This 83-nucleotide RNA sequence from Betaproteobacteria bacterium MOLA814 belongs to the Rfam family "SucA RNA motif". Taxonomically the source falls in Betaproteobacteria (Bacteria, Pseudomonadati, Pseudomonadota).
RNA sequence: UCGCAUCCGCUAAUCGGUUCAGCCGUGUCGCAGGAGGUUUUUUUACCCAACUUAUGUUUUCCAUAGGAAAACGGAGGUCAGCG
Numbered sequence: 001u002c003g004c005a006u007c008c009g010c011u012a013a014u015c016g017g018u019u020c021a022g023c024c025g026u027g028u029c030g031c032a033g034g035a036g037g038u039u040u041u042u043u044u045a046c047c048c049a050a051c052u053u054a055u056g057u058u059u060u061c062c063a064u065a066g067g068a069a070a071a072c073g074g075a076g077g078u079c080a081g082c083g
Stems, first nucleotide, its partner, number of pairs: 002083003006034002009031002015025004036047003050078003056072007
The match comes from Rfam's covariance-model search (72 bits).